[Rfam]
RNA sequence: UGAAUAUCUCGGUAGGUGAGGUUACCACAGGGAUAUGGGUUGCUGCCGCGAAACAGUGGAGACACUGUGAGAAGGUCAACAGGUCAUGUCGAAUCCAAGGCAUGCUCUAACGCAAUUUCACGCCCUGCGAAGCUGAAGCUUGAACGGUGAUAAAAC
Number, nucleotide and partner (000 for none) at each position: 001u000002g000003a000004a000005u152006a151007u150008c149009u000010c147011g145012g000013u098014a000015g140016g139017u138018g000019a000020g134021g133022u132023u000024a000025c000026c129027a000028c127029a126030g125031g124032g123033a000034u000035a000036u000037g000038g000039g116040u115041u114042g113043c112044u000045g076046c075047c074048g000049c000050g000051a000052a000053a000054c000055a066056g065057u064058g063059g000060a000061g000062a000063c058064a057065c056066u055067g000068u000069g000070a000071g000072a000073a000074g047075g046076u045077c000078a000079a000080c000081a000082g107083g106084u000085c104086a000087u000088g101089u100090c099091g000092a000093a000094u000095c000096c000097a000098a013099g090100g089101c088102a000103u000104g085105c000106u083107c082108u000109a000110a000111c000112g043113c042114a041115a040116u039117u000118u000119c000120a000121c000122g000123c032124c031125c030126u029127g028128c000129g026130a000131a000132g022133c021134u020135g000136a000137a000138g017139c016140u015141u000142g000143a000144a000145c011146g000147g010148u000149g008150a007151u006152a005153a000154a000155a000156c000
Rfam assigns this 156-nucleotide RNA from Yeguia hominis to the family "M-box riboswitch aptamer (ykoK leader)". From the family's description: M-box riboswitch, also know as ykoK leader is described as a metaloregulatory RNA that sense divalent metals and function as a genetic control element of genes related to divalent metal transport in bacteria. It was first reported upstream of the B.subtilis ykoK gene and genes with related functions in other bacteria. It scores 100 bits against the family's covariance model. Rfam 15.1 lists 1,095 matches to the family in 932 species. Gene Ontology terms of the family: response to magnesium ion and regulation of gene expression.